[Rfam]
RNA: Group II catalytic intron D1-D4-6
RNA sequence: CAAGUCCACUACGAUAAAGGAUUAGCGAUCCACAUCGGCCCCGAGCCGUGCGCUGGCAUCGGUGAGGAUGUCGGCGAAGCGUCGGCAGGGGAACAUGCAGGCCAGCCAUUGAGGCGCGAAAUAAAGUUGAAUCCGGGUGCCGACGCUGCGUGUUGGGCGGAAGGCAACACGGUAGAACGCGUUAUCGCAAGCGAUCUACUGACCCGGCAACGUCUGAGAACC
Numbered sequence: 001c002a003a004g005u006c007c008a009c010u011a012c013g014a015u016a017a018a019g020g021a022u023u024a025g026c027g028a029u030c031c032a033c034a035u036c037g038g039c040c041c042c043g044a045g046c047c048g049u050g051c052g053c054u055g056g057c058a059u060c061g062g063u064g065a066g067g068a069u070g071u072c073g074g075c076g077a078a079g080c081g082u083c084g085g086c087a088g089g090g091g092a093a094c095a096u097g098c099a100g101g102c103c104a105g106c107c108a109u110u111g112a113g114g115c116g117c118g119a120a121a122u123a124a125a126g127u128u129g130a131a132u133c134c135g136g137g138u139g140c141c142g143a144c145g146c147u148g149c150g151u152g153u154u155g156g157g158c159g160g161a162a163g164g165c166a167a168c169a170c171g172g173u174a175g176a177a178c179g180c181g182u183u184a185u186c187g188c189a190a191g192c193g194a195u196c197u198a199c200u201g202a203c204c205c206g207g208c209a210a211c212g213u214c215u216g217a218g219a220a221c222c
Stems, first nucleotide, its partner, number of pairs: 012037004019031004023190001025188002039091004045086004049081002051076010110216001111214001113213001118208001133207006139165003144159004170201007178193003